Annotation
The family of this 593-nucleotide part of an RNA from Perkinsela sp. CCAP 1560/4 is "Eukaryotic small subunit ribosomal RNA". The family has 90 seed sequences and 75,755 matches in Rfam 15.1. The match comes from Rfam's covariance-model search (1397 bits). Gene Ontology terms of the family: ribosome and structural constituent of ribosome.
RNA sequence: UGUUAAAGGGUUCGUAGUUGGACUCAGGGCGGGGAGAUUCGCGCACAACCGUGCGCCUUCGCCCCCGCCCUGUCACAGACGGGGCCGCGUCCCGCCGCGAGCCUUCACUGGCGCGCGGCACCCGCAAGGGAUCGAGUGCGACACACUCACCGGACCGCCCGUCGUUCUCACCGUGAAUAAAACAGCGUGUUCAAAGCAGCCGUUCGGCCGCAUGACAAAGCAUGGAAUGACAGAGCAUCGACCAGCUGGUUGUGCUUUUGUUGGUUUUCCUACCUAGUUGGGUAACUCGCGGCGCCGCCGCGCCUCCGGGCGCGCGGCGCUCGCACGGGAUUAACGGGGGUUGUCGGGGGAAAACGUAUUCGGGCGUGAGAGGUGAAAUUCUUAGACCGCCCGGGGACGAACUUAUGCGAAGGCAUUUUCCAAGUAUACCUUCAUCAAUCAAGAACUAAAGUGUGGAGAUCGAAGAUGAUUAGAUACCAUUGUAGUCCACCACUGCAAACGAUGACGCCCAUGGAUCGGACAGUGUUCUACUCCGAUGGGAUCUUUUCGGCACUGCUCCCCUUCAACGCGAAAGCUGAGGCUAUGGUCUCAUG
Numbered sequence: 001u002g003u004u005a006a007a008g009g010g011u012u013c014g015u016a017g018u019u020g021g022a023c024u025c026a027g028g029g030c031g032g033g034g035a036g037a038u039u040c041g042c043g044c045a046c047a048a049c050c051g052u053g054c055g056c057c058u059u060c061g062c063c064c065c066c067g068c069c070c071u072g073u074c075a076c077a078g079a080c081g082g083g084g085c086c087g088c089g090u091c092c093c094g095c096c097g098c099g100a101g102c103c104u105u106c107a108c109u110g111g112c113g114c115g116c117g118g119c120a121c122c123c124g125c126a127a128g129g130g131a132u133c134g135a136g137u138g139c140g141a142c143a144c145a146c147u148c149a150c151c152g153g154a155c156c157g158c159c160c161g162u163c164g165u166u167c168u169c170a171c172c173g174u175g176a177a178u179a180a181a182a183c184a185g186c187g188u189g190u191u192c193a194a195a196g197c198a199g200c201c202g203u204u205c206g207g208c209c210g211c212a213u214g215a216c217a218a219a220g221c222a223u224g225g226a227a228u229g230a231c232a233g234a235g236c237a238u239c240g241a242c243c244a245g246c247u248g249g250u251u252g253u254g255c256u257u258u259u260g261u262u263g264g265u266u267u268u269c270c271u272a273c274c275u276a277g278u279u280g281g282g283u284a285a286c287u288c289g290c291g292g293c294g295c296c297g298c299c300g301c302g303c304c305u306c307c308g309g310g311c312g313c314g315c316g317g318c319g320c321u322c323g324c325a326c327g328g329g330a331u332u333a334a335c336g337g338g339g340g341u342u343g344u345c346g347g348g349g350g351a352a353a354a355c356g357u358a359u360u361c362g363g364g365c366g367u368g369a370g371a372g373g374u375g376a377a378a379u380u381c382u383u384a385g386a387c388c389g390c391c392c393g394g395g396g397a398c399g400a401a402c403u404u405a406u407g408c409g410a411a412g413g414c415a416u417u418u419u420c421c422a423a424g425u426a427u428a429c430c431u432u433c434a435u436c437a438a439u440c441a442a443g444a445a446c447u448a449a450a451g452u453g454u455g456g457a458g459a460u461c462g463a464a465g466a467u468g469a470u471u472a473g474a475u476a477c478c479a480u481u482g483u484a485g486u487c488c489a490c491c492a493c494u495g496c497a498a499a500c501g502a503u504g505a506c507g508c509c510c511a512u513g514g515a516u517c518g519g520a521c522a523g524u525g526u527u528c529u530a531c532u533c534c535g536a537u538g539g540g541a542u543c544u545u546u547u548c549g550g551c552a553c554u555g556c557u558c559c560c561c562u563u564c565a566a567c568g569c570g571a572a573a574g575c576u577g578a579g580g581c582u583a584u585g586g587u588c589u590c591a592u593g
Stems, first nucleotide, its partner, number of pairs: 001591002008589001010446004017439003337433004341428001345424001349421006355399002359395008370381003404415001407414002451493002453490004461485001465481004504588003507581003513553001516550005522544002525542005568575002